A member of the RNA family "Small nucleolar RNA SNORA72" from Odobenus rosmarus, 127 nucleotides long.

RNA sequence: CAACGGCAGCUGGCAACUUGUUAGAAACGCAGUUUCCAGGCUACACAUUCGUGAUGUUAAGACCAUGCCUGUGUCGCCAGGCCUUGGUCCUUCCCCAGGUCUGGUUUUAUAAACACUGGUGACCAAC
Numbered sequence: 001c002a003a004c005g006g007c008a009g010c011u012g013g014c015a016a017c018u019u020g021u022u023a024g025a026a027a028c029g030c031a032g033u034u035u036c037c038a039g040g041c042u043a044c045a046c047a048u049u050c051g052u053g054a055u056g057u058u059a060a061g062a063c064c065a066u067g068c069c070u071g072u073g074u075c076g077c078c079a080g081g082c083c084u085u086g087g088u089c090c091u092u093c094c095c096c097a098g099g100u101c102u103g104g105u106u107u108u109a110u111a112a113a114c115a116c117u118g119g120u121g122a123c124c125a126a127c
Stems, first nucleotide, its partner, number of pairs: 010039004015034004019029002062120004067116001077104008086095001

Rfam's curators write: U72 is a member of the H/ACA class of snoRNAs. The snoRNA gene is located in intron 4 of the ribosomal L30 protein gene in human, mouse and chicken.